[Rfam]
RNA sequence: GCUGUACGGUGAUGAUAGCUUGGCUCCCUCUACUGAGAGUUGUGAUGAAAGCAGCCAGACGUUACCCAAUAUUGCUGAGUGUACAGC
Numbered sequence: 001g002c003u004g005u006a007c008g009g010u011g012a013u014g015a016u017a018g019c020u021u022g023g024c025u026c027c028c029u030c031u032a033c034u035g036a037g038a039g040u041u042g043u044g045a046u047g048a049a050a051g052c053a054g055c056c057a058g059a060c061g062u063u064a065c066c067c068a069a070u071a072u073u074g075c076u077g078a079g080u081g082u083a084c085a086g087c
Base pairs, nucleotide, nucleotide: 001087002086003085004084005083006082007081008080
A member of the RNA family "Small nucleolar RNA SNORD100" from Sphenodon punctatus, 87 nucleotides long. Its Rfam clan is "SNORD100 clan". On this family, see Galardi et al., Mol Cell Biol 2002: "Purified box C/D snoRNPs are able to reproduce site-specific 2'-O-methylation of target RNA in vitro". Rfam 15.1 lists 838 matches to the family in 626 species. Gene Ontology terms of the family: nucleolus and RNA processing.